[Rfam]
RNA sequence: AGUCACUAAUUAAGAUCACUAAUUGGACUUAUGUCUUUAUUGGUCAUUCAAGUGGGGCAAAGGAAAUAUCCUUUUAAAGCUCAGGCAAACUAGUGUUUGUCUUAUAUCCUGUCAAAGGAAACAAAU
Numbered sequence: 001a002g003u004c005a006c007u008a009a010u011u012a013a014g015a016u017c018a019c020u021a022a023u024u025g026g027a028c029u030u031a032u033g034u035c036u037u038u039a040u041u042g043g044u045c046a047u048u049c050a051a052g053u054g055g056g057g058c059a060a061a062g063g064a065a066a067u068a069u070c071c072u073u074u075u076a077a078a079g080c081u082c083a084g085g086c087a088a089a090c091u092a093g094u095g096u097u098u099g100u101c102u103u104a105u106a107u108c109c110u111g112u113c114a115a116a117g118g119a120a121a122c123a124a125a126u
Stems, first nucleotide, its partner, number of pairs: 032059005040051004069119006083102008